The family of this 104-nucleotide RNA sequence from Glycine max is "MIR1512 microRNA precursor family". Gene Ontology terms of the family: RISC complex and miRNA-mediated post-transcriptional gene silencing. The family has 3 seed sequences and 10 matches in Rfam 15.1.
RNA sequence: UCUUGAUACCUAACUGAACAUUCUUAGAGCAUCACCAUUGUAGUUCAACAUCAUAAUGAUGUGAAAAAUGGGAAUGCUUUAAGAAUUUCAGUUAUGCAUCAAUC
Numbered sequence: 001u002c003u004u005g006a007u008a009c010c011u012a013a014c015u016g017a018a019c020a021u022u023c024u025u026a027g028a029g030c031a032u033c034a035c036c037a038u039u040g041u042a043g044u045u046c047a048a049c050a051u052c053a054u055a056a057u058g059a060u061g062u063g064a065a066a067a068a069u070g071g072g073a074a075u076g077c078u079u080u081a082a083g084a085a086u087u088u089c090a091g092u093u094a095u096g097c098a099u100c101a102a103u104c
Base pairs, nucleotide, nucleotide: 003102004101005100006099007098009096011094012093013092014091015090016089017088018087020086021085022084023083024082025081026080027079028078029077030076031075032074035071036070037069051064052063053062